This 77-nucleotide RNA sequence from Kryptolebias marmoratus belongs to the Rfam family "Small nucleolar RNA SNORD83". NCBI's taxonomy places the organism under Eukaryota, Actinopteri, Acanthomorphata, Aplocheiloidei, Kryptolebias. Pairs were carried over by alignment from the consensus structure, which was predicted with PFOLD. For this family Rfam cites "Characterisation of the U83 and U84 small nucleolar RNAs: two novel 2'-O-ribose methylation guide RNAs that lack complementarities to ribosomal RNAs" (Jady and Kiss, Nucleic Acids Res, 2000).
RNA sequence: GCCAAAUGAUGAGCAGAAUAGAUGCAGCAGCUUUCGGGCGGUGAUGACCUCCCAUCUAUCACCCUUCUCUGAUGGCU
Numbered sequence: 001g002c003c004a005a006a007u008g009a010u011g012a013g014c015a016g017a018a019u020a021g022a023u024g025c026a027g028c029a030g031c032u033u034u035c036g037g038g039c040g041g042u043g044a045u046g047a048c049c050u051c052c053c054a055u056c057u058a059u060c061a062c063c064c065u066u067c068u069c070u071g072a073u074g075g076c077u
Stems, first nucleotide, its partner, number of pairs: 001076004030039003